A member of the RNA family "Y RNA" from Nomascus leucogenys, 109 nucleotides long. Rfam 15.1 lists 26,986 matches to the family in 650 species. The source organism's lineage runs through Eukaryota, Euteleostomi, Catarrhini, Hylobatidae and Nomascus. The base pairs follow the family's consensus structure, which is taken from published work. The literature on the family includes a 1995 paper in RNA by Van Horn et al., "Caenorhabditis elegans embryos contain only one major species of Ro RNP". The family's RNA type in Rfam is non-coding RNA gene.

RNA sequence: GGCUGGUCUGAAGGUAGUCAGUGAUCUCAGUUGAUUGUUGUCAGUUACAGAUUGAUGUCCUUGUUCUGCUCCUUCCCCUCUACUCACUACUGCAUUUAACUGGUCUUAA
Numbered sequence: 001g002g003c004u005g006g007u008c009u010g011a012a013g014g015u016a017g018u019c020a021g022u023g024a025u026c027u028c029a030g031u032u033g034a035u036u037g038u039u040g041u042c043a044g045u046u047a048c049a050g051a052u053u054g055a056u057g058u059c060c061u062u063g064u065u066c067u068g069c070u071c072c073u074u075c076c077c078c079u080c081u082a083c084u085c086a087c088u089a090c091u092g093c094a095u096u097u098a099a100c101u102g103g104u105c106u107u108a109a
Stems, first nucleotide, its partner, number of pairs: 001105007010097002014093002016088003020084002040070001043067002